Shown here is a 502-nucleotide part of an RNA from Theileria orientalis, a member of the family "Eukaryotic small subunit ribosomal RNA".
The family's consensus secondary structure is taken from published work.
Nucleotides: 502
Base pairs, nucleotide, nucleotide: 001465002464003463009462011332013330014329018325019324020323223319224318225317226316227314228313230311231310235307236306237305238304241285242284245281246280247279248278249277250276252274256267257266258265293300294299337378338377339376340375341374342373347371351367352366353365354364389461390460391459392454393453394452396437397436401432402431403430404429405428406427407426410424411423412422441448442447467494468493469492476487477486478485479484
Number, partner (000 for none) and nucleotide at each position: 001465c002464a003463g004000u005000u006000a007000a008000a009462a010000a011332g012000c013330u014329c015000g016000u017000a018325g019324u020323u021000g022000a023000a024000u025000u026000u027000c028000u029000g030000c031000u032000g033000c034000a035000u036000u037000a038000c039000a040000u041000u042000u043000c044000u045000c046000u047000u048000g049000u050000u051000u052000g053000a054000g055000u056000u057000u058000g059000u060000u061000a062000u063000u064000g065000u066000g067000g068000c069000u070000u071000a072000u073000u074000u075000c076000g077000g078000a079000u080000u081000g082000a083000u084000u085000u086000u087000u088000a089000u090000c091000a092000u093000u094000c095000c096000g097000g098000a099000u100000g101000a102000u103000u104000a105000c106000u107000u108000u109000g110000a111000g112000a113000a114000a115000a116000u117000u118000a119000g120000a121000g122000u123000g124000c125000u126000c127000a128000a129000a130000g131000c132000a133000g134000g135000c136000u137000u138000u139000u140000g141000c142000c143000u144000u145000g146000a147000a148000u149000a150000g151000u152000u153000u154000a155000g156000c157000a158000u159000g160000g161000a162000a163000u164000a165000a166000u167000a168000g169000a170000g171000u172000a173000g174000g175000a176000c177000u178000u179000u180000g181000g182000u183000u184000c185000u186000a187000u188000u189000u190000u191000g192000u193000u194000g195000g196000u197000u198000u199000u200000a201000g202000g203000u204000a205000c206000c207000a208000a209000a210000g211000u212000a213000a214000u215000g216000g217000u218000u219000a220000a221000u222000a223319g224318g225317a226316a227314c228313a229000g230311u231310u232000g233000g234000g235307g236306g237305c238304a239000u240000u241285c242284g243000u244000a245281u246280u247279u248278a249277a250276c251000u252274g253000u254000c255000a256267g257266a258265g259000g260000u261000g262000a263000a264000a265258u266257u267256c268000u269000u270000a271000g272000a273000u274252u275000u276250g277249u278248u279247a280246a281245a282000g283000a284242c285241g286000a287000a288000c289000u290000a291000c292000u293300g294299c295000g296000a297000a298000a299294g300293c301000a302000u303000u304238u305237g306236c307235c308000a309000a310231g311230g312000a313228u314227g315000u316226u317225u318224u319223c320000a321000u322000u323020a324019a325018u326000c327000a328000a329014g330013a331000a332011c333000g334000a335000a336000a337378g338377u339376u340375a341374g342373g343000g344000g345000a346000u347371c348000g349000a350000a351367g352366a353365c354364g355000a356000u357000c358000a359000g360000a361000u362000a363000c364354c365353g366352u367351c368000g369000u370000a371347g372000u373342c374341c375340u376339a377338a378337c379000c380000a381000u382000a383000a384000a385000c386000u387000a388000u389461g390460c391459c392454g393453a394452c395000u396437a397436g398000a399000g400000a401432u402431u403430g404429g405428a406427g407426g408000u409000c410424g411423u412422c413000a414000g415000u416000u417000u418000u419000u420000a421000c422412g423411a424410c425000u426407c427406c428405u429404u430403c431402a432401g433000c434000a435000c436397c437396u438000u439000g440000a441448g442447a443000g444000a445000a446000a447442u448441c449000a450000a451000a452394g453393u454392c455000u456000u457000u458000g459391g460390g461389u462009u463003c464002u465001g466000g467494g468493g469492g470000g471000a472000g473000u474000a475000u476487g477486g478485u479484c480000g481000c482000a483000a484479g485478g486477c487476u488000g489000a490000a491000a492469c493468u494467u495000a496000a497000a498000g499000g500000a501000a502000u
The source organism's lineage runs through Eukaryota, Piroplasmida, Theileriidae, Theileria and Theileria orientalis. The family has 90 seed sequences and 75,755 matches in Rfam 15.1. It scores 1754 bits against the family's covariance model.